[Rfam]
Shown here is a 70-nucleotide sequence from Apteryx australis, a member of the family "Small nucleolar RNA SNORD73". It is annotated as a C/D-box small nucleolar RNA. The match comes from Rfam's covariance-model search (75 bits).
RNA sequence: AAUGAAUGAUGACAAAAUGUUUCGGUCCCAGAUGACUUGAAAUGAUUUUAUUUUCCCAUAUUCUGACAUU
Number, nucleotide and partner (000 for none) at each position: 001a070002a069003u068004g067005a000006a000007u000008g000009a000010u000011g000012a000013c000014a000015a000016a000017a000018u000019g000020u000021u000022u000023c000024g000025g000026u000027c000028c000029c000030a000031g000032a000033u000034g000035a000036c000037u000038u000039g000040a000041a000042a000043u000044g000045a000046u000047u000048u000049u000050a000051u000052u000053u000054u000055c000056c000057c000058a000059u000060a000061u000062u000063c000064u000065g000066a000067c004068a003069u002070u001